[Rfam]
RNA sequence: ACGAUGUUCCGCUGCAGGGGUAGAAGCUGUCAUGAGCAUCUG
Numbered sequence: 001a002c003g004a005u006g007u008u009c010c011g012c013u014g015c016a017g018g019g020g021u022a023g024a025a026g027c028u029g030u031c032a033u034g035a036g037c038a039u040c041u042g
Stems, first nucleotide, its partner, number of pairs: 003040007013032002015029003
RNA: Ribosomal protein L19 leader
Organism: Halalkalibacterium halodurans